The record is a 131-nucleotide sequence from Silurus meridionalis, which matches "Small nucleolar RNA SNORA68" in Rfam. On this family, see Ganot et al., Genes Dev 1997: "The family of box ACA small nucleolar RNAs is defined by an evolutionarily conserved secondary structure and ubiquitous sequence elements essential for RNA accumulation".
RNA sequence: ACCGCACGCAAACCCAAAGAUCAUUGUUCUUGUAUAUAAUGCUCUUGCUAUGUGUGCGCAAAGAAAUAGGACCUUGUCGCCUUUCAUAAGCUCUUGCGUGCCAAUGGAAGUGAAUUCUUGGUUCAACAUCG
Numbered sequence: 001a002c003c004g005c006a007c008g009c010a011a012a013c014c015c016a017a018a019g020a021u022c023a024u025u026g027u028u029c030u031u032g033u034a035u036a037u038a039a040u041g042c043u044c045u046u047g048c049u050a051u052g053u054g055u056g057c058g059c060a061a062a063g064a065a066a067u068a069g070g071a072c073c074u075u076g077u078c079g080c081c082u083u084u085c086a087u088a089a090g091c092u093c094u095u096g097c098g099u100g101c102c103a104a105u106g107g108a109a110g111u112g113a114a115u116u117c118u119u120g121g122u123u124c125a126a127c128a129u130c131g
Stems, first nucleotide, its partner, number of pairs: 003058007019044002022041006069124005081110007090101002

Pairs were carried over by alignment from the consensus structure, which was predicted with PFOLD. The family's RNA type in Rfam is H/ACA-box small nucleolar RNA. Rfam describes the family as follows. U68 is a member of the H/ACA class of small nucleolar RNAs (snoRNAs) which act as guides in the the modification of uridines to pseudouridines.